Source information:
NiCo (Nickel/Cobalt) riboswitch aptamer: a 110-nucleotide sequence from Fretibacterium fastidiosum. For this family Rfam cites "Bacterial riboswitches cooperatively bind Ni(2+) or Co(2+) ions and control expression of heavy metal transporters" (Furukawa et al., Mol Cell, 2015).
Nucleotides: 110
Stems, first nucleotide, its partner, number of pairs: 010109004016104001018051003022045008054070005072101006
Number, partner (000 for none) and nucleotide at each position: 001000a002000c003000a004000g005000u006000a007000c008000a009000a010109a011108c012107u013106g014000a015000g016104c017000a018051g019050g020049c021000g022045a023044u024043g025042u026041c027040c028039c029038c030000g031000u032000u033000u034000g035000g036000a037000c038029g039028g040027g041026g042025g043024c044023g045022u046000g047000g048000g049020g050019c051018c052000g053000g054070g055069c056068c057067g058066c059000g060000a061000a062000g063000u064000c065000a066058g067057c068056g069055g070054c071000a072101g073100c074099a075098g076097a077096u078000c079000a080000c081000g082000g083000u084000u085000c086000a087000a088000a089000c090000c091000g092000g093000c094000g095000c096077a097076u098075c099074u100073g101072c102000g103000g104016g105000a106013c107012a108011g109010u110000g